[Rfam]
RNA sequence: GGCUGGUGAUGUAAGAAAGAUAUUUGCUACUCUUGAUGGGGUUUAUGCUCCAUCUGAUGAUAUCUGUCCACCAAGAUCUCUGAGGCC
Numbered sequence: 001g002g003c004u005g006g007u008g009a010u011g012u013a014a015g016a017a018a019g020a021u022a023u024u025u026g027c028u029a030c031u032c033u034u035g036a037u038g039g040g041g042u043u044u045a046u047g048c049u050c051c052a053u054c055u056g057a058u059g060a061u062a063u064c065u066g067u068c069c070a071c072c073a074a075g076a077u078c079u080c081u082g083a084g085g086c087c
Base pairs, nucleotide, nucleotide: 001087002086003085004084

Source information: The family of this 87-nucleotide RNA sequence from Daucus carota is "Small nucleolar RNA SNORD24". It scores 61 bits against the family's covariance model. Pairs were carried over by alignment from the consensus structure, which was predicted with PFOLD.